[Rfam]
Rfam assigns this 178-nucleotide RNA from Streptomyces sp. NRRL F-5122 to the family "c-di-AMP riboswitch aptamer (ydaO/yuaA leader)". The pairing is the family consensus, mapped onto this sequence. Rfam describes the family as follows. This family represents a conserved RNA structure found upstream of the ydaO and yuaA genes in Bacillus subtilis and related genes in other bacteria. NCBI's taxonomy places the organism under Bacteria, Bacillati, Kitasatosporales, Streptomycetaceae, Streptomyces.
RNA sequence: CCGCUCGAGAAGCCUUCGACCCCAUAACGGCAGGAGCGGGGGACCCAAGUAGGUCGCCGAACCGGACAUCGCACCGGAACGGCUCGGGGUGAAGCCGUGCCUCGGCAGCGAGGACACGGCCGGGCACCUCCCCGCCCGAACCCGACAGCUCACCUCGCAGGCGACGGAGAGGAAUACA
Numbered sequence: 001c002c003g004c005u006c007g008a009g010a011a012g013c014c015u016u017c018g019a020c021c022c023c024a025u026a027a028c029g030g031c032a033g034g035a036g037c038g039g040g041g042g043a044c045c046c047a048a049g050u051a052g053g054u055c056g057c058c059g060a061a062c063c064g065g066a067c068a069u070c071g072c073a074c075c076g077g078a079a080c081g082g083c084u085c086g087g088g089g090u091g092a093a094g095c096c097g098u099g100c101c102u103c104g105g106c107a108g109c110g111a112g113g114a115c116a117c118g119g120c121c122g123g124g125c126a127c128c129u130c131c132c133c134g135c136c137c138g139a140a141c142c143c144g145a146c147a148g149c150u151c152a153c154c155u156c157g158c159a160g161g162c163g164a165c166g167g168a169g170a171g172g173a174a175u176a177c178a
Stems, first nucleotide, its partner, number of pairs: 001034002036158006046086001087143003095119004122137004